[Rfam]
RNA sequence: AAGUCCUUUAAGAAUAGUCCAGAGAGGCUAAGAAGGAAAACUUACUUGCACUGUAGGGGAGAAGUAUACCCACAUAGUGAGUUGGUUAAUUUUGAUAAAAUCAAAUUCCCUCUUAUUCUUUAUGGAUGAGAGGUUUUUUUAU
Numbered sequence: 001a002a003g004u005c006c007u008u009u010a011a012g013a014a015u016a017g018u019c020c021a022g023a024g025a026g027g028c029u030a031a032g033a034a035g036g037a038a039a040a041c042u043u044a045c046u047u048g049c050a051c052u053g054u055a056g057g058g059g060a061g062a063a064g065u066a067u068a069c070c071c072a073c074a075u076a077g078u079g080a081g082u083u084g085g086u087u088a089a090u091u092u093u094g095a096u097a098a099a100a101u102c103a104a105a106u107u108c109c110c111u112c113u114u115a116u117u118c119u120u121u122a123u124g125g126a127u128g129a130g131a132g133g134u135u136u137u138u139u140u141a142u
Stems, first nucleotide, its partner, number of pairs: 004037006015030005049079006057071003061067001105137001109133010

The family of this 142-nucleotide RNA sequence from Vagococcus carniphilus is "PyrR binding site". For this family Rfam cites "Molecular recognition of pyr mRNA by the Bacillus subtilis attenuation regulatory protein PyrR" (Bonner et al., Nucleic Acids Res, 2001). The base pairs follow the family's consensus structure, which is taken from published work. Rfam's curators write: This family represents the PyrR binding site and terminator structure. Rfam 15.1 lists 1,498 matches to the family in 930 species.